[Rfam]
RNA sequence: GGCUUUCUUCGCGGCGGAGCUCGACCGCCCACUGCGCUGAUGUGCGAGUUCGUCGACACGCACCGCGACGAGCACGGGGUCGAGCCGAUCUGCACAGUACUGCAGUUCGCCCCG
Numbered sequence: 001g002g003c004u005u006u007c008u009u010c011g012c013g014g015c016g017g018a019g020c021u022c023g024a025c026c027g028c029c030c031a032c033u034g035c036g037c038u039g040a041u042g043u044g045c046g047a048g049u050u051c052g053u054c055g056a057c058a059c060g061c062a063c064c065g066c067g068a069c070g071a072g073c074a075c076g077g078g079g080u081c082g083a084g085c086c087g088a089u090c091u092g093c094a095c096a097g098u099a100c101u102g103c104a105g106u107u108c109g110c111c112c113c114g
Stems, first nucleotide, its partner, number of pairs: 013029005075114005086109002090105005